Rfam assigns this 184-nucleotide RNA sequence from Halalkalibacter suaedae to the family "Group II catalytic intron D1-D4-5". Rfam links the family to the GO term Group II intron splicing. From the family's description: Group II introns are found in rRNA, tRNA and mRNA of organelles in fungi, plants and protists, and also in mRNA in bacteria.
RNA sequence: UCUAACUUUACAAGGGAGAAUAGGAAUGACGGAACCACGUUUCCAGAAACUAUUCCAUCAAUACUCCUGCGUGCGUUAUAAAUAACAGUUUAUAGGGUUCGAAGCACAGGUAGAUUCGGUUGAAUGAAAGCUAAAGCCAUCUUUAUAGAGGGGUAUGCUGACAGAUAGACCGCAUGGCUGAAAA
Dot-bracket structure: .................((((((.......((((.....))))......))))))(((.......((((((.((.((((((((....)))))))).)).)).....))))......(((((...((..((.............((((......))))))..))....))))).)))........